[Rfam]
RNA sequence: UGCCCCACCUCGGGGUGCCUGCGGAUGUUCCGCCGGCUGAGAUGCGCAAGCGAACCCGUCGAACCUGAACCGGAUCAUACCGGCGGAGGGAAGGUGCGAGAGCGAUCU
Numbered sequence: 001u002g003c004c005c006c007a008c009c010u011c012g013g014g015g016u017g018c019c020u021g022c023g024g025a026u027g028u029u030c031c032g033c034c035g036g037c038u039g040a041g042a043u044g045c046g047c048a049a050g051c052g053a054a055c056c057c058g059u060c061g062a063a064c065c066u067g068a069a070c071c072g073g074a075u076c077a078u079a080c081c082g083g084c085g086g087a088g089g090g091a092a093g094g095u096g097c098g099a100g101a102g103c104g105a106u107c108u
Base pairs, nucleotide, nucleotide: 006096007095008094009093010092011058012057013056014055016052017037018036019035021033022032023031024030044051045050064089065088066087070083071082072081073080
TPP riboswitch aptamer (THI element): a 108-nucleotide sequence from Gemmobacter megaterium.
The source organism's lineage runs through Bacteria, Pseudomonadati, Pseudomonadota, Alphaproteobacteria and Gemmobacter.
Vitamin B(1) in its active form thiamin pyrophosphate (TPP) is an essential coenzyme that is synthesised by coupling of pyrimidine and thiazole moieties in bacteria. The previously detected thiamin-regulatory element, thi box was extended, resulting in a new, highly conserved RNA secondary structure, the THI element, which is widely distributed in eubacteria and also occurs in some archaea.
The match comes from Rfam's covariance-model search (67 bits).